[Rfam]
RNA sequence: GACGUCUUGAACGGGUUGUAGUUGAUGAACGCGUAACCCCGCGCCUGGUCAAUGAUGUGAAAGAGCGGGUUCCAGUCGAACAUCGCGACCAUUGUGUAGGUCAUCGAGUUGGCCACGAACAUCUUGCCUGACGCGAACAUGUUGACGCGCGU
Dot-bracket structure: .(((.(((.(.(((.......))).).)).)))).(.(..(........)...).)......(.(((.((((.....))))...(....((.((((.....((.(((((((....)))....))))..)).......)))).)).).))).)
Shown here is a 152-nucleotide RNA sequence from Albidovulum aquaemixtae, a member of the family "Ruegeria cis2 sRNA". Pairs were carried over by alignment from the consensus structure, which was predicted with RNAfold. Rfam classes the family as a small RNA.